Shown here is a 142-nucleotide sequence from Campylobacter massiliensis, a member of the family "Bacterial antisense RNA HPnc0260".
[Rfam]
RNA sequence: AUUAAAAAACACCUAAAUGCGUAUAAAAGUGCCUUUUAUAGGGUAUUUAUCGGGGAAAACUAAAACGAAAUAAAUAUUAAGAAUAGGUGAAAAUAGGGAUAAAUGGUGGCCCCGAAUGGACUCGAACCAUCGACCACUACCA
Numbered sequence: 001a002u003u004a005a006a007a008a009a010c011a012c013c014u015a016a017a018u019g020c021g022u023a024u025a026a027a028a029g030u031g032c033c034u035u036u037u038a039u040a041g042g043g044u045a046u047u048u049a050u051c052g053g054g055g056a057a058a059a060c061u062a063a064a065a066c067g068a069a070a071u072a073a074a075u076a077u078u079a080a081g082a083a084u085a086g087g088u089g090a091a092a093a094u095a096g097g098g099a100u101a102a103a104u105g106g107u108g109g110c111c112c113c114g115a116a117u118g119g120a121c122u123c124g125a126a127c128c129a130u131c132g133a134c135c136a137c138u139a140c141c142a
Stems, first nucleotide, its partner, number of pairs: 003028001009022002012019001046058003104139006113132002116130004